[Rfam]
Description
Rfam assigns this 137-nucleotide RNA to the family "sok antitoxin (CssrC)". The family's RNA type in Rfam is antitoxin RNA.
RNA sequence: GGGUGCUUGAGGCUAUCUGCCUCGGGCAUGAACACCAACGGCAGAUAGAGAAAAGCCCCAGUUAACAUUACGCGUCCUGCAAGACGCUUAACAUUAAUCUGAGGCCAAUUUCAUGCUAGACACAUGUAGGUUAGCCU
Numbered sequence: 001g002g003g004u005g006c007u008u009g010a011g012g013c014u015a016u017c018u019g020c021c022u023c024g025g026g027c028a029u030g031a032a033c034a035c036c037a038a039c040g041g042c043a044g045a046u047a048g049a050g051a052a053a054a055g056c057c058c059c060a061g062u063u064a065a066c067a068u069u070a071c072g073c074g075u076c077c078u079g080c081a082a083g084a085c086g087c088u089u090a091a092c093a094u095u096a097a098u099c100u101g102a103g104g105c106c107a108a109u110u111u112c113a114u115g116c117u118a119g120a121c122a123c124a125u126g127u128a129g130g131u132u133a134g135c136c137u
Stems, first nucleotide, its partner, number of pairs: 001059003005056004013048009026035001060100002063097001064095002068091002102137004108131004112126004
Dot-bracket structure: (((.((((....(((((((((....(........)....)))))))))....)))))))((.(((..((....................))..)).).)).((((..((((((((.......)))).))))..))))

Annotation: Rfam's curators write: Also identified in Shigella as CssrC. It scores 83 bits against the family's covariance model. For this family Rfam cites "An antisense RNA controls synthesis of an SOS-induced toxin evolved from an antitoxin" (Kawano et al., Mol Microbiol, 2007).